A member of the RNA family "Group II catalytic intron D1-D4-3" from Stenomitos frigidus, 165 nucleotides long. The base pairs follow the family's consensus structure. The match comes from Rfam's covariance-model search (118 bits). Lineage of the source: Bacteria > Bacillati > Cyanophyceae > Leptolyngbyaceae > Stenomitos frigidus.

RNA sequence: GCUUCCGCGAGGAAGGGUCUGAAGGCAGCCAUCGGCAAACCGACGAGCCGACGAACAGAAACGUCAUAGAAGGCUGAGACCCCUGGGUGAGUGCGCACAACACAACAAAACCUAUGGUUCAAGGGGCGCAGUAAAUGACGCGGUUGCGGCGGGACAGUUCACAUU
Numbered sequence: 001g002c003u004u005c006c007g008c009g010a011g012g013a014a015g016g017g018u019c020u021g022a023a024g025g026c027a028g029c030c031a032u033c034g035g036c037a038a039a040c041c042g043a044c045g046a047g048c049c050g051a052c053g054a055a056c057a058g059a060a061a062c063g064u065c066a067u068a069g070a071a072g073g074c075u076g077a078g079a080c081c082c083c084u085g086g087g088u089g090a091g092u093g094c095g096c097a098c099a100a101c102a103c104a105a106c107a108a109a110a111c112c113u114a115u116g117g118u119u120c121a122a123g124g125g126g127c128g129c130a131g132u133a134a135a136u137g138a139c140g141c142g143g144u145u146g147c148g149g150c151g152g153g154a155c156a157g158u159u160c161a162c163a164u165u
Stems, first nucleotide, its partner, number of pairs: 002015005028165001032161001035158002040152003044148002046145005062140006073132003080126005085113004091106002